[Rfam]
RNA sequence: AGAUGUUCUCAGGGCGGGGUGAAAUUCCCCACCGGCGGUAUUUGAAGGCAGGCGGUCUGACCGUUUGUUUCAUCAGCCCGCGAGCGCCUGCUGGGCUACGCAGCAGGGUCGAGCAGAUCCGGUGAGAUCCCGGAGCCGACGGUAUAGUCCGGAUGGGAGAGAACGCUG
Numbered sequence: 001a002g003a004u005g006u007u008c009u010c011a012g013g014g015c016g017g018g019g020u021g022a023a024a025u026u027c028c029c030c031a032c033c034g035g036c037g038g039u040a041u042u043u044g045a046a047g048g049c050a051g052g053c054g055g056u057c058u059g060a061c062c063g064u065u066u067g068u069u070u071c072a073u074c075a076g077c078c079c080g081c082g083a084g085c086g087c088c089u090g091c092u093g094g095g096c097u098a099c100g101c102a103g104c105a106g107g108g109u110c111g112a113g114c115a116g117a118u119c120c121g122g123u124g125a126g127a128u129c130c131c132g133g134a135g136c137c138g139a140c141g142g143u144a145u146a147g148u149c150c151g152g153a154u155g156g157g158a159g160a161g162a163a164c165g166c167u168g
Base pairs, nucleotide, nucleotide: 004165005164006163007162008161009160010159017029018028019027031148032147033138034137035081036080037079038078084114085113118134119133120132121131122130140151141150142149

The family of this 168-nucleotide RNA from Lichenicola cladoniae is "FMN riboswitch aptamer (RFN element)". The match comes from Rfam's covariance-model search (111 bits).